[Rfam]
Shown here is a 112-nucleotide sequence from Clostridium collagenovorans, a member of the family "SAM riboswitch aptamer (S box leader)". A search with the family's covariance model found it, with a score of 89 bits.

RNA sequence: CUCUUAUCCAGAGAGGUGGAGGGACAGGGCCCUACGAAACCCGGCAACCAGUGUUUGACACAAUGGUGCCAAUUCCUGCAGAUUAUAUUUUAUAUGUUCUGCAAGAUAAGAG
Numbered sequence: 001c002u003c004u005u006a007u008c009c010a011g012a013g014a015g016g017u018g019g020a021g022g023g024a025c026a027g028g029g030c031c032c033u034a035c036g037a038a039a040c041c042c043g044g045c046a047a048c049c050a051g052u053g054u055u056u057g058a059c060a061c062a063a064u065g066g067u068g069c070c071a072a073u074u075c076c077u078g079c080a081g082a083u084u085a086u087a088u089u090u091u092a093u094a095u096g097u098u099c100u101g102c103a104a105g106a107u108a109a110g111a112g
Base pairs, nucleotide, nucleotide: 001112002111003110004109005108006107007106008105013042015041016040017039021032022031023030027077028076029075043070044069045068046067048066049065051061052060053059074104079101080100081099082098084096085095086094087093